Selenocysteine transfer RNA: a 95-nucleotide sequence from Promineifilum breve.
On this family, see Mizutani and Goto, FEBS Lett 2000: "Eukaryotic selenocysteine tRNA has the 9/4 secondary structure".
It scores 60 bits against the family's covariance model.
The family's consensus secondary structure is taken from published work.
RNA sequence: GGGAGUGGUUGUGUCCCGGUGGAUGCCCUUGUCUUCAAAAUAAGUGGCCGGCUACGCACAGUAGGCGGUGGUGGGUUCGACUCCCAUCCGCUCCC
Dot-bracket structure: ((((((((..((((((....)))))).(((((.......)))))..((((...............))))..((((.......)))).))))))))
Numbered sequence: 001g002g003g004a005g006u007g008g009u010u011g012u013g014u015c016c017c018g019g020u021g022g023a024u025g026c027c028c029u030u031g032u033c034u035u036c037a038a039a040a041u042a043a044g045u046g047g048c049c050g051g052c053u054a055c056g057c058a059c060a061g062u063a064g065g066c067g068g069u070g071g072u073g074g075g076u077u078c079g080a081c082u083c084c085c086a087u088c089c090g091c092u093c094c095c
Stems, first nucleotide, its partner, number of pairs: 001095008011026006028044005047069004072086004